[Rfam]
RNA sequence: GGUAUAGUAUUGGGGGCCAUAUAAGGAGCGUUCACGUCGCGGCCCCUUUCAGGUAUCUGUUUACCUGCGAAUCCUUCU
Numbered sequence: 001g002g003u004a005u006a007g008u009a010u011u012g013g014g015g016g017c018c019a020u021a022u023a024a025g026g027a028g029c030g031u032u033c034a035c036g037u038c039g040c041g042g043c044c045c046c047u048u049u050c051a052g053g054u055a056u057c058u059g060u061u062u063a064c065c066u067g068c069g070a071a072u073c074c075u076u077c078u
Base pairs, nucleotide, nucleotide: 013046014045015044016043017042018041021078023076024075025074026073027072028040029039030038050067051066052065053064054063055062
The record is a 78-nucleotide RNA sequence from Laticauda laticaudata, which matches "Mammalian CPEB3 ribozyme" in Rfam. The source organism's lineage runs through Eukaryota, Chordata, Dipnotetrapodomorpha, Lepidosauria and Laticauda.